[Rfam]
RNA sequence: GGCGUAAAGCGUCCGCAGGUGGUGGUUCAAGUCUGCUGUUAAAGACAGAAGCUCAACUUCUGAGCGGCAGUGGAAACUGGGCAACUAGAGUACGGUAGGGGUUGAGGGAAUUCCCAGUGUAGCGGUGAAAUGCGUAGAUAUUGGGAAGAACACCAGUGGCGAAGGCGCUCAACUGGGCCGUAACUGACACUCAGGGACGAAAGCUAGGGUAGCGAAAGGGAUUAGAUACCCCUGUAGUCUUAGCUGUAAACGAUGAACACUAGGCGUUGCUUGUAUCGACCCGAGCAGUGCCGUAGCCAACGCGUUAAGUGUUCCGCCUGGGGAGUACGCACGCAAGUGUGAAACUCAAAGGAAU
Numbered sequence: 001g002g003c004g005u006a007a008a009g010c011g012u013c014c015g016c017a018g019g020u021g022g023u024g025g026u027u028c029a030a031g032u033c034u035g036c037u038g039u040u041a042a043a044g045a046c047a048g049a050a051g052c053u054c055a056a057c058u059u060c061u062g063a064g065c066g067g068c069a070g071u072g073g074a075a076a077c078u079g080g081g082c083a084a085c086u087a088g089a090g091u092a093c094g095g096u097a098g099g100g101g102u103u104g105a106g107g108g109a110a111u112u113c114c115c116a117g118u119g120u121a122g123c124g125g126u127g128a129a130a131u132g133c134g135u136a137g138a139u140a141u142u143g144g145g146a147a148g149a150a151c152a153c154c155a156g157u158g159g160c161g162a163a164g165g166c167g168c169u170c171a172a173c174u175g176g177g178c179c180g181u182a183a184c185u186g187a188c189a190c191u192c193a194g195g196g197a198c199g200a201a202a203g204c205u206a207g208g209g210u211a212g213c214g215a216a217a218g219g220g221a222u223u224a225g226a227u228a229c230c231c232c233u234g235u236a237g238u239c240u241u242a243g244c245u246g247u248a249a250a251c252g253a254u255g256a257a258c259a260c261u262a263g264g265c266g267u268u269g270c271u272u273g274u275a276u277c278g279a280c281c282c283g284a285g286c287a288g289u290g291c292c293g294u295a296g297c298c299a300a301c302g303c304g305u306u307a308a309g310u311g312u313u314c315c316g317c318c319u320g321g322g323g324a325g326u327a328c329g330c331a332c333g334c335a336a337g338u339g340u341g342a343a344a345c346u347c348a349a350a351g352g353a354a355u
Stems, first nucleotide, its partner, number of pairs: 001318003009315001011198004018191003022085002025082004030078002032074009046062006089185003092181005100174007107151001111147008122133003159166002203244006212238002217233004255314006263292011296303002320347003329340004